Shown here is an 87-nucleotide sequence from Clytia hemisphaerica, a member of the family "Small nucleolar RNA snR60/Z15/Z230/Z193/J17". On this family, see Tycowski et al., Curr Biol 2004: "Guide RNAs with 5' caps and novel box C/D snoRNA-like domains for modification of snRNAs in metazoa". It scores 55 bits against the family's covariance model. The source organism's lineage runs through Eukaryota, Hydroidolina, Leptothecata, Obeliida and Clytia.
RNA sequence: AAUUCUGAAGUGAUGAUUGAAAUUAAAGCAUAGUUCAGCAGAAAUUAUUAUGUUGAAAUAUAUUUUCGCCCCUAUCUGAUCAGAAUU
Numbered sequence: 001a002a003u004u005c006u007g008a009a010g011u012g013a014u015g016a017u018u019g020a021a022a023u024u025a026a027a028g029c030a031u032a033g034u035u036c037a038g039c040a041g042a043a044a045u046u047a048u049u050a051u052g053u054u055g056a057a058a059u060a061u062a063u064u065u066u067c068g069c070c071c072c073u074a075u076c077u078g079a080u081c082a083g084a085a086u087u
Stems, first nucleotide, its partner, number of pairs: 004084005